[Rfam]
RNA: Flavo-1 RNA
RNA sequence: GCUGAGCGCGUUAAGGAUUGUAGUGACAUCCUUUUUUGUUUUUCACAAAAAAGAUAUAAUGUAAAGCCUGACCUUUA
Numbered sequence: 001g002c003u004g005a006g007c008g009c010g011u012u013a014a015g016g017a018u019u020g021u022a023g024u025g026a027c028a029u030c031c032u033u034u035u036u037u038g039u040u041u042u043u044c045a046c047a048a049a050a051a052a053g054a055u056a057u058a059a060u061g062u063a064a065a066g067c068c069u070g071a072c073c074u075u076u077a
Stems, first nucleotide, its partner, number of pairs: 014069003018065002023060002028055003032051004037047003